[Rfam]
The family of this 87-nucleotide RNA sequence from Callipepla squamata is "Small nucleolar RNA SNORD60".
The family has 22 seed sequences and 825 matches in Rfam 15.1.
Taxonomically the source falls in Callipepla (Eukaryota, Deuterostomia, Craniata, Saurischia).
Rfam classes the family as a C/D-box small nucleolar RNA.
RNA sequence: AGCCGGGGAUGAUUCGUUCCUUUCUGACACCUCGUCUGAAGGCGGCGGGCGACCGCGGCCGCUGCUGACGCUCCGCGGCUGAGGCUC
Numbered sequence: 001a002g003c004c005g006g007g008g009a010u011g012a013u014u015c016g017u018u019c020c021u022u023u024c025u026g027a028c029a030c031c032u033c034g035u036c037u038g039a040a041g042g043c044g045g046c047g048g049g050c051g052a053c054c055g056c057g058g059c060c061g062c063u064g065c066u067g068a069c070g071c072u073c074c075g076c077g078g079c080u081g082a083g084g085c086u087c
Stems, first nucleotide, its partner, number of pairs: 001086004042062005